[Rfam]
RNA sequence: ACAAGAACAAUAACAAGCACUGCAAAAGACAAUAAAAAUAAGACGAAUCGGCUCACGCACAAUAAGAACAAGACGGCGGAGGCGCAGCUAACUGAUUCUUUUGGAGAGGAGUUGUAUUUGGGGCUUGCCCCACAACCAGGCAGAGAACAACAAAAACUGCACUCAAGCAGGGCCUGAACUGGUUGGAUCGCAUGAUCACUGCAACCUCAGCGACCAAAGCAAUCCGUUUGCUCUUGACUCCCGGUUAGGGAGAACACCCACAAGCCUUGCGGUUUUGUGGGUAGGGCACUCAACAAAAACAAGAAGCCCGGCAAAAGAACAAUAAGAGCAUGCAACUACUUCUUGGGGAGCUUCGGCUCCCCUUGUAGUUUCCGGCUUUCAGCCCGCCCGAUGCACCCGCCUAC
Numbered sequence: 001a002c003a004a005g006a007a008c009a010a011u012a013a014c015a016a017g018c019a020c021u022g023c024a025a026a027a028g029a030c031a032a033u034a035a036a037a038a039u040a041a042g043a044c045g046a047a048u049c050g051g052c053u054c055a056c057g058c059a060c061a062a063u064a065a066g067a068a069c070a071a072g073a074c075g076g077c078g079g080a081g082g083c084g085c086a087g088c089u090a091a092c093u094g095a096u097u098c099u100u101u102u103g104g105a106g107a108g109g110a111g112u113u114g115u116a117u118u119u120g121g122g123g124c125u126u127g128c129c130c131c132a133c134a135a136c137c138a139g140g141c142a143g144a145g146a147a148c149a150a151c152a153a154a155a156a157c158u159g160c161a162c163u164c165a166a167g168c169a170g171g172g173c174c175u176g177a178a179c180u181g182g183u184u185g186g187a188u189c190g191c192a193u194g195a196u197c198a199c200u201g202c203a204a205c206c207u208c209a210g211c212g213a214c215c216a217a218a219g220c221a222a223u224c225c226g227u228u229u230g231c232u233c234u235u236g237a238c239u240c241c242c243g244g245u246u247a248g249g250g251a252g253a254a255c256a257c258c259c260a261c262a263a264g265c266c267u268u269g270c271g272g273u274u275u276u277g278u279g280g281g282u283a284g285g286g287c288a289c290u291c292a293a294c295a296a297a298a299a300c301a302a303g304a305a306g307c308c309c310g311g312c313a314a315a316a317g318a319a320c321a322a323u324a325a326g327a328g329c330a331u332g333c334a335a336c337u338a339c340u341u342c343u344u345g346g347g348g349a350g351c352u353u354c355g356g357c358u359c360c361c362c363u364u365g366u367a368g369u370u371u372c373c374g375g376c377u378u379u380c381a382g383c384c385c386g387c388c389c390g391a392u393g394c395a396c397c398c399g400c401c402u403a404c
Stems, first nucleotide, its partner, number of pairs: 049084002052081003099219005113212003133185007157170004238252004278386005284309004328371001345362007
RNA: Pseudomonas sRNA CrcZ